U12 minor spliceosomal RNA: a 150-nucleotide RNA from Galemys pyrenaicus.
Its family is annotated with mRNA branch site recognition, pre-mRNA branch point binding and U12 snRNP in the Gene Ontology.

[Rfam]
RNA sequence: AUGCCAUAAAAUAAAGAAUAAGGAAAAUAGUGAUUGAGGGUAACCCUCAAAUUCUCACUACUAAUGUGAGACAAAUUUCUGAGCCAGACAAGCUCACCUCUAAUGUGACCCACCAACUUUGUGGGAUGCCUGGGAGUCACAAUCUGCCCA
Numbered sequence: 001a002u003g004c005c006a007u008a009a010a011a012u013a014a015a016g017a018a019u020a021a022g023g024a025a026a027a028u029a030g031u032g033a034u035u036g037a038g039g040g041u042a043a044c045c046c047u048c049a050a051a052u053u054c055u056c057a058c059u060a061c062u063a064a065u066g067u068g069a070g071a072c073a074a075a076u077u078u079c080u081g082a083g084c085c086a087g088a089c090a091a092g093c094u095c096a097c098c099u100c101u102a103a104u105g106u107g108a109c110c111c112a113c114c115a116a117c118u119u120u121g122u123g124g125g126a127u128g129c130c131u132g133g134g135a136g137u138c139a140c141a142a143u144c145u146g147c148c149c150a
Base pairs, nucleotide, nucleotide: 004023005022007020008019032053033052034051035050038047039046054070055069056068057067058066087147091145092144094142100134101133103131105129106128107127109125110124111123112122113121
Rfam classes the family as a spliceosomal small nuclear RNA. The base pairs follow the family's consensus structure. The organism belongs to Galemys, within Eukaryota.